[Rfam]
Description:
A member of the RNA family "Fst antitoxin sRNA" from Nosocomiicoccus massiliensis, 94 nucleotides long. The match comes from Rfam's covariance-model search (76 bits). The literature on the family includes a 2010 paper in Nucleic Acids Res by Fozo et al., "Abundance of type I toxin-antitoxin systems in bacteria: searches for new candidates and discovery of novel families". Rfam's curators write: It is located on the opposite strand of SprA1 sRNA. Its family is annotated with mRNA binding in the Gene Ontology. Rfam classes the family as an antitoxin RNA.

RNA sequence: CGCAAUAGUGAGGGCUUUUUUAUGGUGUUGGCUAUUGUCGCCUAUUUAUCAUUGCGAUUACGUAACCAAUACGCAAAGUACGCAACGAUACCCC
Number, nucleotide and partner (000 for none) at each position: 001c000002g000003c000004a000005a000006u000007a000008g091009u090010g089011a000012g000013g000014g000015c000016u000017u000018u000019u000020u000021u000022a000023u000024g000025g000026u000027g041028u000029u040030g039031g038032c037033u000034a000035u000036u000037g032038u031039c030040g029041c027042c000043u000044a000045u000046u000047u000048a000049u000050c000051a000052u085053u084054g083055c082056g081057a000058u000059u000060a000061c073062g072063u000064a000065a000066c000067c000068a000069a000070u000071a000072c062073g061074c000075a000076a000077a000078g000079u000080a000081c056082g055083c054084a053085a052086c000087g000088a000089u010090a009091c008092c000093c000094c000